This 91-nucleotide RNA from Polymorphum gilvum belongs to the Rfam family "Selenocysteine transfer RNA".
The family's consensus secondary structure is taken from published work.
A reference for the family is Mizutani and Goto (2000), "Eukaryotic selenocysteine tRNA has the 9/4 secondary structure", FEBS Lett.

RNA sequence: GGAGGAGAAUCGUCCCCGGUGGGGCGUCCGGACUUCAAAUCCGGGAGGGGCUGCGAGACAGUCCCUGGUGGGUUCGACUCCCGCCUCCUCC
Numbered sequence: 001g002g003a004g005g006a007g008a009a010u011c012g013u014c015c016c017c018g019g020u021g022g023g024g025c026g027u028c029c030g031g032a033c034u035u036c037a038a039a040u041c042c043g044g045g046a047g048g049g050g051c052u053g054c055g056a057g058a059c060a061g062u063c064c065c066u067g068g069u070g071g072g073u074u075c076g077a078c079u080c081c082c083g084c085c086u087c088c089u090c091c
Base pairs, nucleotide, nucleotide: 001091002090003089004088005087006086007085011026012025013024014023015022016021027045028044029043030042031041032040047065048064049063050062051061069083070082071081072080